[Rfam]
RNA sequence: UGCCCACCGUCACCGGUCCUGUAGAGACGACGGGCAGGCGCGGGGGACCCACCUCGUAGGACCAGGCCCUCGGGCCUUGGGGUGAAGCCGCAGGAUGCGGCCGGGCAACUCUCGCCCGAACCCGACAGCUAACUCCGCAGGCGGCGAGAGGCUCA
Numbered sequence: 001u002g003c004c005c006a007c008c009g010u011c012a013c014c015g016g017u018c019c020u021g022u023a024g025a026g027a028c029g030a031c032g033g034g035c036a037g038g039c040g041c042g043g044g045g046g047a048c049c050c051a052c053c054u055c056g057u058a059g060g061a062c063c064a065g066g067c068c069c070u071c072g073g074g075c076c077u078u079g080g081g082g083u084g085a086a087g088c089c090g091c092a093g094g095a096u097g098c099g100g101c102c103g104g105g106c107a108a109c110u111c112u113c114g115c116c117c118g119a120a121c122c123c124g125a126c127a128g129c130u131a132a133c134u135c136c137g138c139a140g141g142c143g144g145c146g147a148g149a150g151g152c153u154c155a
Base pairs, nucleotide, nucleotide: 002039003038004037040138041137042136043135044134045133050079051078080123081122082121088100089099090098091097103117104116105115106114